[Rfam]
RNA: FMN riboswitch aptamer (RFN element)
Organism: Ligilactobacillus ubinensis
RNA sequence: GUUUAUCUUCAGGGCAGGGUGAAAUUCCCGACCGGCGGUAUAGUCCGCGACCCUCGUUAGAGGUUGAAUUGGUGAAACUCCAAUACCGACAGUAUAGUCUGGAUGAAAGAAGAUAGGG
Numbered sequence: 001g002u003u004u005a006u007c008u009u010c011a012g013g014g015c016a017g018g019g020u021g022a023a024a025u026u027c028c029c030g031a032c033c034g035g036c037g038g039u040a041u042a043g044u045c046c047g048c049g050a051c052c053c054u055c056g057u058u059a060g061a062g063g064u065u066g067a068a069u070u071g072g073u074g075a076a077a078c079u080c081c082a083a084u085a086c087c088g089a090c091a092g093u094a095u096a097g098u099c100u101g102g103a104u105g106a107a108a109g110a111a112g113a114u115a116g117g118g
Stems, first nucleotide, its partner, number of pairs: 003116008017029003031098002033088002035048004043086002052063002068084005090101003